The record is a 332-nucleotide sequence from Phyllostomus discolor, which matches "Nuclear RNase P" in Rfam. NCBI's taxonomy places the organism under Eukaryota, Bilateria, Teleostomi, Chiroptera, Phyllostomus. Gene Ontology terms of the family: tRNA processing, ribonuclease P activity and ribonuclease P complex.

[Rfam]
RNA sequence: GGCGGAGGGAAGCUCAUUGGUGGGGCUACGAACUGAGUGCAUUUCGUCACUCUACUACGUGUCCCUUGGGAAGGUCUGAGACAAGGGCCAAUAGCGACCCUAACAGGGCUCUCCCUGAGCUGCGGGGAGGUGAGUUCCCAGAGAGCGGGCCUUCGUGCGAGGGCAGACUGGGCAGGAGAUGCCACGGACUCUCCCCAGUGGAAGGGCCUGGCGGAUGCCCCCCUAGCCGGAGCUUGGAACAGACUCACGGCCAGCUAAGUGAGUUCAAUGGCUGAGGUGAGGUACUCCACAAGGGGGCCUCAUAACCCAAUUCAGACUACUCUCCCCCCGUC
Numbered sequence: 001g002g003c004g005g006a007g008g009g010a011a012g013c014u015c016a017u018u019g020g021u022g023g024g025g026c027u028a029c030g031a032a033c034u035g036a037g038u039g040c041a042u043u044u045c046g047u048c049a050c051u052c053u054a055c056u057a058c059g060u061g062u063c064c065c066u067u068g069g070g071a072a073g074g075u076c077u078g079a080g081a082c083a084a085g086g087g088c089c090a091a092u093a094g095c096g097a098c099c100c101u102a103a104c105a106g107g108g109c110u111c112u113c114c115c116u117g118a119g120c121u122g123c124g125g126g127g128a129g130g131u132g133a134g135u136u137c138c139c140a141g142a143g144a145g146c147g148g149g150c151c152u153u154c155g156u157g158c159g160a161g162g163g164c165a166g167a168c169u170g171g172g173c174a175g176g177a178g179a180u181g182c183c184a185c186g187g188a189c190u191c192u193c194c195c196c197a198g199u200g201g202a203a204g205g206g207c208c209u210g211g212c213g214g215a216u217g218c219c220c221c222c223c224u225a226g227c228c229g230g231a232g233c234u235u236g237g238a239a240c241a242g243a244c245u246c247a248c249g250g251c252c253a254g255c256u257a258a259g260u261g262a263g264u265u266c267a268a269u270g271g272c273u274g275a276g277g278u279g280a281g282g283u284a285c286u287c288c289a290c291a292a293g294g295g296g297g298c299c300u301c302a303u304a305a306c307c308c309a310a311u312u313c314a315g316a317c318u319a320c321u322c323u324c325c326c327c328c329c330g331u332c
Stems, first nucleotide, its partner, number of pairs: 001332004008325003013276004018271001022066004035052005040046001076315005086252004096110001098108003111129006130248007151232005277303007
Rfam classes the family as a ribozyme.